[Rfam]
RNA sequence: ACAUGAAAGAGCCGGGACCGAACCCGGUCUGUCAGAGCGCGAAAUUUGUCUUGGGAGGAUGAGAUCGCGGCGCGCCUUGCGCAGCCGACCCGCAAUGCGGGGAAACGAUCACGCGUUCGAACUAUAACGGGACCGCUUGGCGGUCCCGUUUCCU
Numbered sequence: 001a002c003a004u005g006a007a008a009g010a011g012c013c014g015g016g017a018c019c020g021a022a023c024c025c026g027g028u029c030u031g032u033c034a035g036a037g038c039g040c041g042a043a044a045u046u047u048g049u050c051u052u053g054g055g056a057g058g059a060u061g062a063g064a065u066c067g068c069g070g071c072g073c074g075c076c077u078u079g080c081g082c083a084g085c086c087g088a089c090c091c092g093c094a095a096u097g098c099g100g101g102g103a104a105a106c107g108a109u110c111a112c113g114c115g116u117u118c119g120a121a122c123u124a125u126a127a128c129g130g131g132a133c134c135g136c137u138u139g140g141c142g143g144u145c146c147c148g149u150u151u152c153c154u
Base pairs, nucleotide, nucleotide: 003154005152006151011028012027013026014025015024016023038115039114040113041112048060049059050058051057063110064109065108066107067106069086070085071084072082073081074080089101090100091099129147130146131145132144133143134142135141136140
The record is a 154-nucleotide sequence from Notoacmeibacter marinus, which matches "Alphaproteobacterial sRNA ar9" in Rfam. On this family, see del Val et al., RNA Biol 2012: "A survey of sRNA families in alpha-proteobacteria". Pairs were carried over by alignment from the consensus structure. The organism belongs to Notoacmeibacter, within Bacteria. A search with the family's covariance model found it, with a score of 62 bits. The family's RNA type in Rfam is small RNA.